[Rfam]
The family of this 132-nucleotide sequence is "Small nucleolar RNA SNORA25". Rfam links the family to the GO terms RNA processing and nucleolus. ACA25 is a member of the H/ACA class of snoRNA that guide the sites of modification of uridines to pseudouridines. The sequence is in the family's curated seed alignment.
Nucleotides: 132
Stems, first nucleotide, its partner, number of pairs: 002059006014047008023039001026037002072126005079119004087111008
Number, partner (000 for none) and nucleotide at each position: 001000a002059g003058g004057u005056c006055a007054u008000u009000u010000c011000a012000a013000a014047g015046a016045g017044g018043g019042c020041u021040c022000a023039u024000g025000a026037g027036g028000c029000u030000g031000u032000g033000a034000a035000a036027c037026c038000c039023a040021g041020a042019g043018c044017u045016c046015u047014u048000a049000a050000c051000g052000c053000u054007g055006u056005g057004a058003c059002c060000a061000a062000a063000g064000a065000u066000g067000g068000a069000a070000g071000u072126u073125c074124u075123c076122u077000a078000u079119a080118g081117g082116a083000u084000g085000c086000c087111a088110u089109a090108g091107c092106a093105c094104u095000c096000c097000u098000a099000u100000g101000u102000u103000u104094g105093g106092u107091g108090c109089u110088a111087u112000g113000u114000u115000u116082u117081c118080c119079u120000g121000a122076g123075g124074a125073g126072a127000u128000a129000u130000a131000a132000a